The record is a 138-nucleotide sequence from Ciona savignyi, which matches "U11 spliceosomal RNA" in Rfam.
RNA sequence: UAAAAGGGCUUCCGUCGUGACUGGCGCAUGUAUUGGGCUUUAACUAGUUCGGUAUGUGUGGAAUCGCAAUCAAUAGAUUCCGGAAGCACAAUUUUUACAACAUAGUGGAUGUUGGUUGCCGCUUGCACCGACGCCCGU
Numbered sequence: 001u002a003a004a005a006g007g008g009c010u011u012c013c014g015u016c017g018u019g020a021c022u023g024g025c026g027c028a029u030g031u032a033u034u035g036g037g038c039u040u041u042a043a044c045u046a047g048u049u050c051g052g053u054a055u056g057u058g059u060g061g062a063a064u065c066g067c068a069a070u071c072a073a074u075a076g077a078u079u080c081c082g083g084a085a086g087c088a089c090a091a092u093u094u095u096u097a098c099a100a101c102a103u104a105g106u107g108g109a110u111g112u113u114g115g116u117u118g119c120c121g122c123u124u125g126c127a128c129c130g131a132c133g134c135c136c137g138u
Stems, first nucleotide, its partner, number of pairs: 008087005013026005027058012059082007105136001107135002111132005117127003
Lineage of the source: Eukaryota > Eumetazoa > Chordata > Phlebobranchia > Ciona.
Pairs were carried over by alignment from the consensus structure, which is taken from published work.
Rfam's curators put it in the seed alignment.